[Rfam]
RNA sequence: AUAAAUAUUGGGCAAACCUGCUGUGAGGCAGGGACGCAAAGCCGUGGAUCUUAUAAAUUUAUAAGACUGCCUGGUUGCCGCU
Dot-bracket structure: ...........((...((((((....))))))...))..((((..((.((..(.....).....))...)).))))......